[Rfam]
Nucleotides: 181
Stems, first nucleotide, its partner, number of pairs: 013091001015089001030082002033079001035077001037074005043068002045065002050060003107174005120160006127154004132145002134142002
Number, partner (000 for none) and nucleotide at each position: 001000g002000g003000u004000g005000g006000a007000c008000g009000g010000u011000g012000u013091g014000c015089g016000u017000a018000g019000u020000g021000u022000c023000c024000a025000u026000c027000u028000g029000c030082g031081u032000c033079u034000a035077g036000u037074g038073c039072u040071g041070u042000c043068u044067c045065c046064a047000u048000u049000c050060u051059g052058u053000g054000u055000c056000u057000u058052a059051c060050a061000g062000g063000c064046u065045g066000u067044g068043a069000g070041a071040c072039g073038g074037u075000u076000c077035u078000c079033a080000u081031g082030c083000c084000a085000a086000a087000c088000u089015c090000a091013c092000a093000g094000c095000c096000a097000c098000a099000g100000a101000g102000c103000c104000a105000a106000u107174g108173g109172a110171g111170a112000u113000c114000a115000u116000a117000g118000u119000a120160c121159u122158g123157g124156c125155c126000c127154a128153g129152u130151g131000a132145u133144g134142u135141c136000u137000a138000a139000a140000c141135g142134a143000c144133c145132a146000u147000c148000c149000a150000c151130c152129a153128c154127u155125g156124g157123c158122c159121a160120g161000c162000c163000u164000c165000c166000a167000u168000a169000g170111u171110c172109u173108c174107c175000u176000a177000c178000a179000a180000a181000a

The record is a 181-nucleotide sequence from Sinocyclocheilus rhinocerous, which matches "Small nucleolar RNA SNORA23" in Rfam. Pairs were carried over by alignment from the consensus structure, which was predicted with RNAalifold. The literature on the family includes a 2001 paper in EMBO J by Huttenhofer et al., "RNomics: an experimental approach that identifies 201 candidates for novel, small, non-messenger RNAs in mouse". By type it is an H/ACA-box small nucleolar RNA. Rfam's curators write: The members of this family belong to the H/ACA class of snoRNAs which are thought to guide the sites of modification of uridines to pseudouridines. This family includes human snoRNA ACA23 (SNORA23) and mouse snoMBI-1.